[Rfam]
RNA: Iron response element II
Organism: Jaculus jaculus
RNA sequence: ACGUUAUCGGAAGUAGUGUCUUCCAUAAUGU
Numbered sequence: 001a002c003g004u005u006a007u008c009g010g011a012a013g014u015a016g017u018g019u020c021u022u023c024c025a026u027a028a029u030g031u
Base pairs, nucleotide, nucleotide: 001031002030003029004028005027006026007025009024010023011022012021013020014018